[Rfam]
RNA sequence: CCCCCGCCCCAUGACAAGGCCGAACAUGGAGCAUUAAAGGGAGG
Numbered sequence: 001c002c003c004c005c006g007c008c009c010c011a012u013g014a015c016a017a018g019g020c021c022g023a024a025c026a027u028g029g030a031g032c033a034u035u036a037a038a039g040g041g042a043g044g
Stems, first nucleotide, its partner, number of pairs: 002041003006032002009029005
The family of this 44-nucleotide RNA sequence from Rhodothalassium salexigens is "Tick-borne Flavivirus short stem-loop SL6". In different studies, a short stem-loop, named SL6 has been observed in at least Tick-borne encephalitis virus, Langat virus and Omsk hemorrhagic fever. SL6 shows a high heterogeneity among different tick-borne flaviviruses, but is structurally conserved supported by multiple covariation. The family's consensus secondary structure was predicted with LocARNA. It is one of the family's seed sequences.